[Rfam]
RNA sequence: UUUGGCAUUCGGUUUGUUCAUCAAAAUACCGUUACCCACUGCAUGUAAUAAGUGAGUUUUACCUAGACCGGUACCACCAUA
Numbered sequence: 001u002u003u004g005g006c007a008u009u010c011g012g013u014u015u016g017u018u019c020a021u022c023a024a025a026a027u028a029c030c031g032u033u034a035c036c037c038a039c040u041g042c043a044u045g046u047a048a049u050a051a052g053u054g055a056g057u058u059u060u061a062c063c064u065a066g067a068c069c070g071g072u073a074c075c076a077c078c079a080u081a
Stems, first nucleotide, its partner, number of pairs: 005042003009038001011036003016032002021028001052077003056074002061072003
RNA: antisense RNA of dnaA mRNA
Organism: Thalassotalea mangrovi